Notes: Shown here is a 62-nucleotide sequence from Nodularia spumigena, a member of the family "Nitrogen stress-induced RNA 1". For this family Rfam cites "Heterocyst-specific transcription of NsiR1, a non-coding RNA encoded in a tandem array of direct repeats in cyanobacteria" (Ionescu et al., J Mol Biol, 2010). Rfam's curators put it in the seed alignment. The base pairs follow the family's consensus structure. The family's RNA type in Rfam is small RNA.

RNA sequence: UGGUAGAUGCACCCUGAUAACUAACUCCCCUGACUGGCUAACACCCGUUGGGGGAUUUUUUU
Numbered sequence: 001u002g003g004u005a006g007a008u009g010c011a012c013c014c015u016g017a018u019a020a021c022u023a024a025c026u027c028c029c030c031u032g033a034c035u036g037g038c039u040a041a042c043a044c045c046c047g048u049u050g051g052g053g054g055a056u057u058u059u060u061u062u
Base pairs, nucleotide, nucleotide: 002013003012004011027054028053029052030051031050032049033048034047036045037044